Rfam assigns this 64-nucleotide RNA sequence from Actinacidiphila glaucinigra to the family "Actino-pnp RNA". It is annotated as a cis-regulatory element.

[Rfam]
RNA sequence: GCCGGUCCUCGGUAGUGGCCCCCGGGCAGCACGUACGUCCCGGUGGCUUCGAUCGAAGACCGGC
Numbered sequence: 001g002c003c004g005g006u007c008c009u010c011g012g013u014a015g016u017g018g019c020c021c022c023c024g025g026g027c028a029g030c031a032c033g034u035a036c037g038u039c040c041c042g043g044u045g046g047c048u049u050c051g052a053u054c055g056a057a058g059a060c061c062g063g064c
Stems, first nucleotide, its partner, number of pairs: 001064007009056005017048004022043005029036001